[Rfam]
RNA sequence: UAGUCCCUGCAGUGUUCGUGACUUGACCUUACAUUUCUUGAACCAAUGCUUAUGGCAUUAGGUUGCCGGAUUGACAAGUAGGAGUGAACGUCUUAACUGACGAUCCCGAAACUUGACUGAAGGCGACCACCUUGAACCCUCGGUUCCAGGAUGCCGGUCUUGACGGCACAGGCGGGGCAUUU
Numbered sequence: 001u002a003g004u005c006c007c008u009g010c011a012g013u014g015u016u017c018g019u020g021a022c023u024u025g026a027c028c029u030u031a032c033a034u035u036u037c038u039u040g041a042a043c044c045a046a047u048g049c050u051u052a053u054g055g056c057a058u059u060a061g062g063u064u065g066c067c068g069g070a071u072u073g074a075c076a077a078g079u080a081g082g083a084g085u086g087a088a089c090g091u092c093u094u095a096a097c098u099g100a101c102g103a104u105c106c107c108g109a110a111a112c113u114u115g116a117c118u119g120a121a122g123g124c125g126a127c128c129a130c131c132u133u134g135a136a137c138c139c140u141c142g143g144u145u146c147c148a149g150g151a152u153g154c155c156g157g158u159c160u161u162g163a164c165g166g167c168a169c170a171g172g173c174g175g176g177g178c179a180u181u182u
Base pairs, nucleotide, nucleotide: 002180005177006176007175008174009173010172012169013168014167015166017165018164019163035151036150037149038148040146041145042144043143044142061128062127063126065124066123067122073117075115076114077113078112079111086105087104
Shown here is a 182-nucleotide RNA sequence from Pusillimonas sp. T2, a member of the family "6S / SsrS RNA".
It scores 76 bits against the family's covariance model.
Lineage of the source: Bacteria > Pseudomonadota > Burkholderiales > Alcaligenaceae > Pusillimonas.
The family's RNA type in Rfam is non-coding RNA gene.
E. coli 6S RNA was the first non coding RNA to be sequenced, but its function was unknown until recently.
The base pairs follow the family's consensus structure, which is taken from published work.